[Rfam]
L31-Actinobacteria ribosomal protein leader: a 49-nucleotide RNA sequence. Clan: Ribosomal Protein L31 Leader clan. It is one of the family's seed sequences.
RNA sequence: CUGGCUCCGGUUCACGUCCGCGCAUCCGCGCCCUGGCGACCCGGCGGCC
Numbered sequence: 001c002u003g004g005c006u007c008c009g010g011u012u013c014a015c016g017u018c019c020g021c022g023c024a025u026c027c028g029c030g031c032c033c034u035g036g037c038g039a040c041c042c043g044g045c046g047g048c049c
Stems, first nucleotide, its partner, number of pairs: 003049003007044004015038004020031004